[Rfam]
Nucleotides: 093
Base pairs, nucleotide, nucleotide: 001085002084003083004082005081006080007079008078009077013052014051015050016049018047020046029042030041031040032039033038054069055068056067057066
Number, partner (000 for none) and nucleotide at each position: 001085g002084g003083u004082c005081g006080g007079g008078u009077a010000g011000c012000g013052a014051g015050c016049a017000g018047u019000c020046u021000a022000u023000a024000c025000a026000a027000c028000a029042c030041c031040u032039g033038c034000u035000u036000u037000g038033g039032u040031g041030g042029g043000g044000a045000a046020a047018a048000c049016u050015g051014c052013u053000g054069g055068c056067c057066g058000u059000c060000u061000c062000u063000a064000u065000u066057c067056g068055g069054u070000g071000u072000u073000g074000a075000a076000g077009u078008a079007c080006c081005c082004g083003a084002c085001c086000a087000c088000c089000c090000u091000a092000u093000c

This 93-nucleotide RNA belongs to the Rfam family "sRNA-Xcc1". On this family, see Wengelnik et al., Mol Plant Microbe Interact 1996: "HrpG, a key hrp regulatory protein of Xanthomonas campestris pv. vesicatoria is homologous to two-component response regulators".